Record summary: Bacterial small subunit ribosomal RNA: a 582-nucleotide part of an RNA from Formicincola oecophyllae. The match comes from Rfam's covariance-model search (1570 bits). A reference for the family is Yusupov et al. (2001), "Crystal structure of the ribosome at 5.5 A resolution", Science. NCBI's taxonomy places the organism under Bacteria, Pseudomonadota, Acetobacterales, Acetobacteraceae, Formicincola.

RNA sequence: UGACGGGGGCCCGCACAAGCGGUGGAGCAUGUGGUUUAAUUCGAAGCAACGCGCAGAACCUUACCAAGGCUUGUAUGGGGAGGCUUUAGAUAGAAAUAUCUAUUUCUUCGGACCUCCCACACAGGUGCUGCAUGGCUGUCGUCAGCUCGUGUCGUGAGAUGUUGGGUUAAGUCCCGCAACGAGCGCAACCCCUGUCUCUAGUUGCUAACACGUUUGGGUGAGCACUCUAGAGAGACCGCCGGUGAUAAACCGGAGGAAGGUGGGGAUGACGUCAAGUCCUCAUGGCCCUUAUGCCUUGGGCUACACACGUGCUACAAUGGCGGUGACAGAGGGAAGCUACCUAGUGAUAGGAUGCCGAUCUUUAAAAGCCGUCUCAGUUCGGAUUGUACUCUGCAACUCGAGUACAUGAAGGUGGAAUCGCUAGUAAUCGCGGAUCAGCAUGCCGCGGUGAAUACGUUCCCGGGCCUUGUACACACCGCCCGUCACACCAUGGGAGUUGGUUCGACCUUAAGUCGGUGAGCAAACCUUUUGGAUGCAGCCGACCACGGUUAGAUCAGCGACUGGGGUGAAGUCGUAACAAGG
Numbered sequence: 001u002g003a004c005g006g007g008g009g010c011c012c013g014c015a016c017a018a019g020c021g022g023u024g025g026a027g028c029a030u031g032u033g034g035u036u037u038a039a040u041u042c043g044a045a046g047c048a049a050c051g052c053g054c055a056g057a058a059c060c061u062u063a064c065c066a067a068g069g070c071u072u073g074u075a076u077g078g079g080g081a082g083g084c085u086u087u088a089g090a091u092a093g094a095a096a097u098a099u100c101u102a103u104u105u106c107u108u109c110g111g112a113c114c115u116c117c118c119a120c121a122c123a124g125g126u127g128c129u130g131c132a133u134g135g136c137u138g139u140c141g142u143c144a145g146c147u148c149g150u151g152u153c154g155u156g157a158g159a160u161g162u163u164g165g166g167u168u169a170a171g172u173c174c175c176g177c178a179a180c181g182a183g184c185g186c187a188a189c190c191c192c193u194g195u196c197u198c199u200a201g202u203u204g205c206u207a208a209c210a211c212g213u214u215u216g217g218g219u220g221a222g223c224a225c226u227c228u229a230g231a232g233a234g235a236c237c238g239c240c241g242g243u244g245a246u247a248a249a250c251c252g253g254a255g256g257a258a259g260g261u262g263g264g265g266a267u268g269a270c271g272u273c274a275a276g277u278c279c280u281c282a283u284g285g286c287c288c289u290u291a292u293g294c295c296u297u298g299g300g301c302u303a304c305a306c307a308c309g310u311g312c313u314a315c316a317a318u319g320g321c322g323g324u325g326a327c328a329g330a331g332g333g334a335a336g337c338u339a340c341c342u343a344g345u346g347a348u349a350g351g352a353u354g355c356c357g358a359u360c361u362u363u364a365a366a367a368g369c370c371g372u373c374u375c376a377g378u379u380c381g382g383a384u385u386g387u388a389c390u391c392u393g394c395a396a397c398u399c400g401a402g403u404a405c406a407u408g409a410a411g412g413u414g415g416a417a418u419c420g421c422u423a424g425u426a427a428u429c430g431c432g433g434a435u436c437a438g439c440a441u442g443c444c445g446c447g448g449u450g451a452a453u454a455c456g457u458u459c460c461c462g463g464g465c466c467u468u469g470u471a472c473a474c475a476c477c478g479c480c481c482g483u484c485a486c487a488c489c490a491u492g493g494g495a496g497u498u499g500g501u502u503c504g505a506c507c508u509u510a511a512g513u514c515g516g517u518g519a520g521c522a523a524a525c526c527u528u529u530u531g532g533a534u535g536c537a538g539c540c541g542a543c544c545a546c547g548g549u550u551a552g553a554u555c556a557g558c559g560a561c562u563g564g565g566g567u568g569a570a571g572u573c574g575u576a577a578c579a580a581g582g
Base pairs, nucleotide, nucleotide: 001473002472003470004469005468007467008466009465010464011463012462013461015457016456019421020420021419022418023417024315026313027312028311029310030309031308032307033306034304035303040055042053043052064299065298066297067296068295069294070293076121077120078118079117080116081115082114087102088101089100090099091098092097105112106111124288125287127286128285129284130283133282134281135277136276137275138273140271141270145184146183147182148181149180150179151160152159153158163176164175165174166173190265191264192263193262195233196232197231198230199229200228201227205222206221209220210219211218236256237255239253240252241251242250243249319373320372321371322370323369324368331362332361333360336355337354341350342349343348380411385406386405387404388403389402390401391400427449428448429447430446431445432444433443476581478578481574482573486568487567488566489565491563492562493561496558497557498556499555500554501553502552504550505549506548507547512543513542514541515540516539517538520536521535522534525532526531